Notes: This 204-nucleotide RNA from Leptonychotes weddellii belongs to the Rfam family "Small nucleolar RNA SNORA74". The source organism's lineage runs through Eukaryota, Amniota, Mammalia, Pinnipedia and Leptonychotes. Rfam classes the family as an H/ACA-box small nucleolar RNA. The literature on the family includes a 1997 paper in Genes Dev by Ganot et al., "The family of box ACA small nucleolar RNAs is defined by an evolutionarily conserved secondary structure and ubiquitous sequence elements essential for RNA accumulation".
[Rfam]
RNA sequence: UCCAGCAGUAGUCAGCUGUCCAGAUAGAGCCAUUCCUGUGAUGGUGUUACACUGCUGGAAGAGGGCUGUCCUGUCGUCUUCCUCCAGUGGCUUCUGUUGCUCUUCUGGUGGCGCCUGCCGUUGGUGCAAGGCAGAACUGUGCUUCCUUGAUAGGGUGCUGAGCGUUCACUCUGGCCGCUUAGCUCUAGUCCGGGAGCAGACAUA
Numbered sequence: 001u002c003c004a005g006c007a008g009u010a011g012u013c014a015g016c017u018g019u020c021c022a023g024a025u026a027g028a029g030c031c032a033u034u035c036c037u038g039u040g041a042u043g044g045u046g047u048u049a050c051a052c053u054g055c056u057g058g059a060a061g062a063g064g065g066c067u068g069u070c071c072u073g074u075c076g077u078c079u080u081c082c083u084c085c086a087g088u089g090g091c092u093u094c095u096g097u098u099g100c101u102c103u104u105c106u107g108g109u110g111g112c113g114c115c116u117g118c119c120g121u122u123g124g125u126g127c128a129a130g131g132c133a134g135a136a137c138u139g140u141g142c143u144u145c146c147u148u149g150a151u152a153g154g155g156u157g158c159u160g161a162g163c164g165u166u167c168a169c170u171c172u173g174g175c176c177g178c179u180u181a182g183c184u185c186u187a188g189u190c191c192g193g194g195a196g197c198a199g200a201c202a203u204a
Stems, first nucleotide, its partner, number of pairs: 001059009011050002015045006021038003024034001068137002071134005082126001084124003088120004094113001098110004140198007155185001157183001159181006
The family is grouped with related families in Rfam's "SNORA74 clan". Its family is annotated with nucleolus and RNA processing in the Gene Ontology.